[Rfam]
RNA sequence: UGACGGGGGCCCGCACAAGCGGUGGAACAUGUGGUUUAAUUCGAGGCAACGCGAAGAACCUUACCUGGGCUUGACAUCCCCGGGCCGCCCCGGAGACGGGGCUUCCCCUUCGGGGGCCGGGUGACAGGUGCUGCAUGGCUGUCGUCAGCUCGUGUCGUGAGAUGUUGGGUUAAGUCCCGCAACGAGCGCAACCCCCGUCCUCAGUUGCCAGCGGCUCGGCCGGGCACUCUGGGGAGACUGCCGGUGACAAGCCGGAGGAAGGCGGGGACGACGUCAAGUCAUCAUGGCCCUCAUGCCCAGGGCUACACACGUGUUACAAUGGGGGCGACAGCGGGCCGCGAAGCCGCGAGGCGGAGCGAAUCCCCAAAAGCCCCCCCAGUUCGGAUCGCAGUCUGCAACCCGACUGCGUGAAGCCGGAAUCGCUAGUAAUCGCGGAUCAGCACGCCGCGGUGAAUCCGUUCCCGGGCCUUGUACACACCGCCCGUCACACCAUGGGAGUCGGCGGGGGCGGAAGCCGCCGGGCCAACCCCUUCGGGGGGGGCAGGCGUCCAAGCUCACGUCGGCGACUGGGGUGAAGUCGUAACAAGG
Numbered sequence: 001u002g003a004c005g006g007g008g009g010c011c012c013g014c015a016c017a018a019g020c021g022g023u024g025g026a027a028c029a030u031g032u033g034g035u036u037u038a039a040u041u042c043g044a045g046g047c048a049a050c051g052c053g054a055a056g057a058a059c060c061u062u063a064c065c066u067g068g069g070c071u072u073g074a075c076a077u078c079c080c081c082g083g084g085c086c087g088c089c090c091c092g093g094a095g096a097c098g099g100g101g102c103u104u105c106c107c108c109u110u111c112g113g114g115g116g117c118c119g120g121g122u123g124a125c126a127g128g129u130g131c132u133g134c135a136u137g138g139c140u141g142u143c144g145u146c147a148g149c150u151c152g153u154g155u156c157g158u159g160a161g162a163u164g165u166u167g168g169g170u171u172a173a174g175u176c177c178c179g180c181a182a183c184g185a186g187c188g189c190a191a192c193c194c195c196c197g198u199c200c201u202c203a204g205u206u207g208c209c210a211g212c213g214g215c216u217c218g219g220c221c222g223g224g225c226a227c228u229c230u231g232g233g234g235a236g237a238c239u240g241c242c243g244g245u246g247a248c249a250a251g252c253c254g255g256a257g258g259a260a261g262g263c264g265g266g267g268a269c270g271a272c273g274u275c276a277a278g279u280c281a282u283c284a285u286g287g288c289c290c291u292c293a294u295g296c297c298c299a300g301g302g303c304u305a306c307a308c309a310c311g312u313g314u315u316a317c318a319a320u321g322g323g324g325g326c327g328a329c330a331g332c333g334g335g336c337c338g339c340g341a342a343g344c345c346g347c348g349a350g351g352c353g354g355a356g357c358g359a360a361u362c363c364c365c366a367a368a369a370g371c372c373c374c375c376c377c378a379g380u381u382c383g384g385a386u387c388g389c390a391g392u393c394u395g396c397a398a399c400c401c402g403a404c405u406g407c408g409u410g411a412a413g414c415c416g417g418a419a420u421c422g423c424u425a426g427u428a429a430u431c432g433c434g435g436a437u438c439a440g441c442a443c444g445c446c447g448c449g450g451u452g453a454a455u456c457c458g459u460u461c462c463c464g465g466g467c468c469u470u471g472u473a474c475a476c477a478c479c480g481c482c483c484g485u486c487a488c489a490c491c492a493u494g495g496g497a498g499u500c501g502g503c504g505g506g507g508g509c510g511g512a513a514g515c516c517g518c519c520g521g522g523c524c525a526a527c528c529c530c531u532u533c534g535g536g537g538g539g540g541g542c543a544g545g546c547g548u549c550c551a552a553g554c555u556c557a558c559g560u561c562g563g564c565g566a567c568u569g570g571g572g573u574g575a576a577g578u579c580g581u582a583a584c585a586a587g588g
Base pairs, nucleotide, nucleotide: 001475002474003472004471005470007469008468009467010466011465012464013463015459016458019423020422021421022420023419024317026315027314028313029312030311031310032309033308034306035305040055041054042053043052064301065300066299067298068297069296070295077124078123079121080120081119082118083117087102088101089100090099091098092097105116106115107114108113127290128289130288131287132286133285136284137283138279139278140277141275143273144272148187149186150185151184152183153182154163155162156161166179167178168177169176193267194266195265196264198235199234200233201232202231203230204229208224209223212222213221214220238258239257241255242254243253244252245251321375322374323373324372325371326370333364334363335362338357339356343352344351345350382413387408388407389406390405391404392403393402429451430450431449432448433447434446435445478587480584483580484579488574489573490572491571493569494568495567498564499563500562501561502560503559504558506556507555508554509553514549516547517546518545519544522542523541524540527538528537529536530535
Dot-bracket structure: (((((.(((((((.((..((((((.((((((((((....((((........))))........(((((((......(((((((...((((((....))))))..((((....))))))))).))..((.((((..((((((.((...(((((((((....)))..((((......))))..)))))).....((((.(((((((...((..(((.....)))))....)))))))..((.(((((.....))))).)).....))))....)).).)))...))))))))....)))))))...)).)))))))).)...((((((......(((..((...(((....)))...))....))).....))))))......(....(((((((........)))))))....).....))))).....(((((((.........)))))))......))...)))))))))).))..(.(..((...((((.(((..(((((((.((((....(.((((..(((..((((....)))).))).)))).)...)))).)))))))..))).))))....))...)..).